A member of the RNA family "Caenorhabditis snoRNA ceN92" from Caenorhabditis brenneri, 130 nucleotides long.
RNA sequence: GUGCACAUACUCAUUUUGAGAAAGUUUUGUAGUCAAAGUUUUCCAGUAGUAUUGUGCGAGAAAAACCGUUCUACUGCCACACGGGUACUGGCCUAUAAGCUGUAUCGGUUCCAAAGUUGUUCGAACAUUU
Numbered sequence: 001g002u003g004c005a006c007a008u009a010c011u012c013a014u015u016u017u018g019a020g021a022a023a024g025u026u027u028u029g030u031a032g033u034c035a036a037a038g039u040u041u042u043c044c045a046g047u048a049g050u051a052u053u054g055u056g057c058g059a060g061a062a063a064a065a066c067c068g069u070u071c072u073a074c075u076g077c078c079a080c081a082c083g084g085g086u087a088c089u090g091g092c093c094u095a096u097a098a099g100c101u102g103u104a105u106c107g108g109u110u111c112c113a114a115a116g117u118u119g120u121u122c123g124a125a126c127a128u129u130u
Stems, first nucleotide, its partner, number of pairs: 002058006020043007028035002073117003081109002084106005090101003
The family's consensus secondary structure was predicted with RNAalifold. The literature on the family includes a 2007 paper in BMC Mol Biol by Jia et al., "Systematic identification of non-coding RNA 2,2,7-trimethylguanosine cap structures in Caenorhabditis elegans". It is annotated as an H/ACA-box small nucleolar RNA.